Shown here is a 105-nucleotide RNA sequence from Odoribacter laneus, a member of the family "SAM riboswitch aptamer (S box leader)".
Lineage of the source: Bacteria > Pseudomonadati > Bacteroidia > Odoribacteraceae > Odoribacter laneus.
Its family is annotated with regulation of gene expression in the Gene Ontology.
Rfam 15.1 lists 9,625 matches to the family in 4,158 species.
RNA sequence: GAAUUAUAAAGAGGAGUUGAGAGACGGGCUCUGUGAAACUCCGACAACCUCAGUGAUACUGAAAGGUGCCAAAACCCGUCCUGAAAAAAUCAGGAAUUAUAAUUU
Numbered sequence: 001g002a003a004u005u006a007u008a009a010a011g012a013g014g015a016g017u018u019g020a021g022a023g024a025c026g027g028g029c030u031c032u033g034u035g036a037a038a039c040u041c042c043g044a045c046a047a048c049c050u051c052a053g054u055g056a057u058a059c060u061g062a063a064a065g066g067u068g069c070c071a072a073a074a075c076c077c078g079u080c081c082u083g084a085a086a087a088a089a090u091c092a093g094g095a096a097u098u099a100u101a102a103u104u105u
Stems, first nucleotide, its partner, number of pairs: 001105008013042005021031003025078004043070001045068002048066002050062004074097001079095006